[Rfam]
RNA: STnc490 Hfq binding RNA
Organism: Thermoanaerobacteraceae bacterium SP2
RNA sequence: AACCACCUGCUAUGCAGGUGGUUCCAAAAAGCUUAUAGCUCUAUGGGUAGAAAUAAAAAACCUCCUUUGUUAGAAUAGAUGCAGGUCUGUCAACCGCAUCAAAACAAAGGAGGUU
Numbered sequence: 001a002a003c004c005a006c007c008u009g010c011u012a013u014g015c016a017g018g019u020g021g022u023u024c025c026a027a028a029a030a031g032c033u034u035a036u037a038g039c040u041c042u043a044u045g046g047g048u049a050g051a052a053a054u055a056a057a058a059a060a061c062c063u064c065c066u067u068u069g070u071u072a073g074a075a076u077a078g079a080u081g082c083a084g085g086u087c088u089g090u091c092a093a094c095c096g097c098a099u100c101a102a103a104a105c106a107a108a109g110g111a112g113g114u115u
Stems, first nucleotide, its partner, number of pairs: 001023010028042001030040004059115013076101001078100005084095003